The record is a 58-nucleotide RNA sequence from Candidatus Enterovibrio altilux, which matches "Pseudomonas sRNA P26" in Rfam. About the family: This small RNA (sRNA) was computationally identified in the genome of the opportunistic pathogen Pseudomonas aeruginosa and its expression verified by northern blot analysis. P26 is conserved across many Gammaproteobacteria species and appears to be consistently located between the DNA directed RNA polymerase (beta subunit) and 50S ribosomal protein L7/L12 genes. NCBI's taxonomy places the organism under Bacteria, Pseudomonadati, Pseudomonadota, Gammaproteobacteria, Enterovibrio. The family's consensus secondary structure was predicted with RNAalifold. A search with the family's covariance model found it, with a score of 51 bits.
RNA sequence: UUAUUGAAUUUUUUAGUCUGUACAGGCUAAUGGCUGGUGGCUAAAUAGCCACCAGCUU
Numbered sequence: 001u002u003a004u005u006g007a008a009u010u011u012u013u014u015a016g017u018c019u020g021u022a023c024a025g026g027c028u029a030a031u032g033g034c035u036g037g038u039g040g041c042u043a044a045a046u047a048g049c050c051a052c053c054a055g056c057u058u
Stems, first nucleotide, its partner, number of pairs: 014029005032057010